This 148-nucleotide RNA from Brucella rhizosphaerae belongs to the Rfam family "Alphaproteobacterial sRNA ar9". By type it is a small RNA.

[Rfam]
RNA sequence: ACAAGCCUAUCAACGGAAUAGAACCGUUGUCUCACGCGGUCAAAGUCUUGGGAGGAUGGAUCCAGGCGCGAUAUUACGCCGCCGCCAGUAAAAUGGAAACGGGUCGAACGCGUAUUCGACUAGCAAGGCGCAAGCCUUGCUUUUUUUU
Number, nucleotide and partner (000 for none) at each position: 001a000002c000003a148004a147005g146006c000007c000008u000009a000010u000011c029012a028013a027014c026015g025016g024017a000018a000019u000020a000021g000022a000023a000024c016025c015026g014027u013028u012029g011030u000031c000032u000033c000034a000035c112036g111037c110038g109039g000040u000041c000042a000043a000044a000045g057046u056047c055048u054049u000050g000051g000052g000053a000054g048055g047056a046057u045058g000059g105060a104061u103062c102063c101064a000065g083066g082067c081068g079069c078070g077071a000072u000073a000074u000075u000076a000077c070078g069079c068080c000081g067082c066083c065084g000085c096086c095087a094088g000089u000090a000091a000092a000093a000094u087095g086096g085097a000098a000099a000100c000101g063102g062103g061104u060105c059106g000107a000108a000109c038110g037111c036112g035113u000114a000115u000116u000117c000118g000119a000120c000121u000122a141123g140124c139125a138126a137127g136128g135129c134130g000131c000132a000133a000134g129135c128136c127137u126138u125139g124140c123141u122142u000143u000144u000145u000146u005147u004148u003